[Rfam]
RNA sequence: UGAAUCGAAUAAGCCUUUUUUCGUAUAUCCUUAAUAAUGGGUUUAAGGGUCUCUACUGGAAACCGUAAAUUUCCGGCUACGAAAAUAUGCUGCGGCAUA
Numbered sequence: 001u002g003a004a005u006c007g008a009a010u011a012a013g014c015c016u017u018u019u020u021u022c023g024u025a026u027a028u029c030c031u032u033a034a035u036a037a038u039g040g041g042u043u044u045a046a047g048g049g050u051c052u053c054u055a056c057u058g059g060a061a062a063c064c065g066u067a068a069a070u071u072u073c074c075g076g077c078u079a080c081g082a083a084a085a086u087a088u089g090c091u092g093c094g095g096c097a098u099a
Base pairs, nucleotide, nucleotide: 018085019084020083021082022081023080024079025078029048030047031046032045033044034043057075058074059073060072061071062070
This 99-nucleotide RNA from Paenibacillus agri belongs to the Rfam family "Purine riboswitch aptamer". Rfam links the family to the GO term purine nucleobase biosynthetic process. Lineage of the source: Bacteria > Bacillati > Bacillota > Caryophanales > Paenibacillus. Riboswitches are metabolite binding domains within certain messenger RNAs that serve as precision sensors for their corresponding targets. Its Rfam clan is "Purine riboswitches". The match comes from Rfam's covariance-model search (66 bits).